[Rfam]
RNA sequence: GAAUAUCGCCGGGUGUUUCUCCUCCUCCCAUUCCCUCGGCGAUCAAAGACCGGACACUCCCCCCCCAAGUCCGGUCUUUUCCAUAAAACACCCGUCGCCGCCUCCCGGCGACGGGUGUUUUGU
Numbered sequence: 001g002a003a004u005a006u007c008g009c010c011g012g013g014u015g016u017u018u019c020u021c022c023u024c025c026u027c028c029c030a031u032u033c034c035c036u037c038g039g040c041g042a043u044c045a046a047a048g049a050c051c052g053g054a055c056a057c058u059c060c061c062c063c064c065c066c067a068a069g070u071c072c073g074g075u076c077u078u079u080u081c082c083a084u085a086a087a088a089c090a091c092c093c094g095u096c097g098c099c100g101c102c103u104c105c106c107g108g109c110g111a112c113g114g115g116u117g118u119u120u121u122g123u
Stems, first nucleotide, its partner, number of pairs: 007041003011037003015033001046078010088118011